[Rfam]
RNA sequence: GUUGGGGGAAAUAGUGGUUAGUCGGAUUGGGAAAAAAGACAUCAUACCUUGAGGUAAAAUUAGGUUUGCUUCCUUUUACUCCCAAAAUCUUUUUACCGUGGGUAAAAAGAAUCAUCAUGGGGGUAUAAAAGGAACCAAAUUUAAAUUUACCUCAAGGGAUUUUGAUGUCUUUUUCCCCAAGAGGACUGAUCACUAUUUUCCCCAAG
Numbered sequence: 001g002u003u004g005g006g007g008g009a010a011a012u013a014g015u016g017g018u019u020a021g022u023c024g025g026a027u028u029g030g031g032a033a034a035a036a037a038g039a040c041a042u043c044a045u046a047c048c049u050u051g052a053g054g055u056a057a058a059a060u061u062a063g064g065u066u067u068g069c070u071u072c073c074u075u076u077u078a079c080u081c082c083c084a085a086a087a088u089c090u091u092u093u094u095a096c097c098g099u100g101g102g103u104a105a106a107a108a109g110a111a112u113c114a115u116c117a118u119g120g121g122g123g124u125a126u127a128a129a130a131g132g133a134a135c136c137a138a139a140u141u142u143a144a145a146u147u148u149a150c151c152u153c154a155a156g157g158g159a160u161u162u163u164g165a166u167g168u169c170u171u172u173u174u175c176c177c178c179a180a181g182a183g184g185a186c187u188g189a190u191c192a193c194u195a196u197u198u199u200c201c202c203c204a205a206g
Base pairs, nucleotide, nucleotide: 003204004203005202006201007200008199009198010197011196012195013194014193015192016191017190018189019188020187021186022185023184027180028179029178030177031176033174034173035172041166042165043164044163045159047157049155050154051153052152053151055149056148057147058146060144061143062142063141064140065139066138067137068136070134071133072132073131074130075129076128077125078124079123080122081121082120083119084118089109090108091107092106093105094104095103096102097101